Rfam assigns this 120-nucleotide sequence from Papaver nudicaule to the family "U5 spliceosomal RNA". Gene Ontology terms of the family: spliceosomal tri-snRNP complex assembly and U5 snRNP. The family's RNA type in Rfam is spliceosomal small nuclear RNA. The organism belongs to Papaver, within Eukaryota. U5 RNA is a component of both types of known spliceosome. The precise function of this molecule is unknown, though it is known that the 5' loop is required for splice site selection and p220 binding, and that both the 3' stem-loop and the Sm site are important for Sm protein binding and cap methylation.
[Rfam]
RNA sequence: AGCCAUGCGGUAAGCACAGAGCGAACUAUUCUUUCGCCUUUUACUAAAGAAUACCGUGUGCUUGCCGCUUAUAAGUGGCAUACGCCUAUUUUUGGAGGGUUUUCUCUUUUCAAGAGAAAC
Number, nucleotide and partner (000 for none) at each position: 001a000002g079003c078004c077005a076006u000007g000008c067009g066010g065011u064012a063013a062014g061015c060016a059017c058018a057019g000020a000021g000022c000023g000024a000025a000026c000027u053028a052029u051030u050031c049032u048033u047034u046035c000036g000037c000038c000039u000040u000041u000042u000043a000044c000045u000046a034047a033048a032049g031050a030051a029052u028053a027054c000055c000056g000057u018058g017059u016060g015061c014062u013063u012064g011065c010066c009067g008068c000069u000070u000071a000072u000073a000074a000075g000076u005077g004078g003079c002080a000081u000082a000083c000084g000085c000086c000087u000088a000089u000090u000091u000092u000093u000094g000095g000096a000097g000098g000099g000100u000101u119102u118103u117104c116105u115106c114107u000108u000109u000110u000111c000112a000113a000114g106115a105116g104117a103118a102119a101120c000